RNA sequence: UAUGAGUGAUUUGUUUGCCGAGUUACUGUAGGGAAUGCUGAAUGUAUUCCAGCAUGCAUGACAUGUGGGAUCCUAUAGUCGGAGGAACACUCUUUU
Dot-bracket structure: .(.((((........(.((((....(((((((((((((.....)))))))..((((.....)))).......))))))))))).....)))).)..
Numbered sequence: 001u002a003u004g005a006g007u008g009a010u011u012u013g014u015u016u017g018c019c020g021a022g023u024u025a026c027u028g029u030a031g032g033g034a035a036u037g038c039u040g041a042a043u044g045u046a047u048u049c050c051a052g053c054a055u056g057c058a059u060g061a062c063a064u065g066u067g068g069g070a071u072c073c074u075a076u077a078g079u080c081g082g083a084g085g086a087a088c089a090c091u092c093u094u095u096u
Stems, first nucleotide, its partner, number of pairs: 002094001004092004016083001018082004026078006032050007053065004

The record is a 96-nucleotide sequence, which matches "DUF3800-VII RNA" in Rfam. It is one of the family's seed sequences. It is annotated as a small RNA.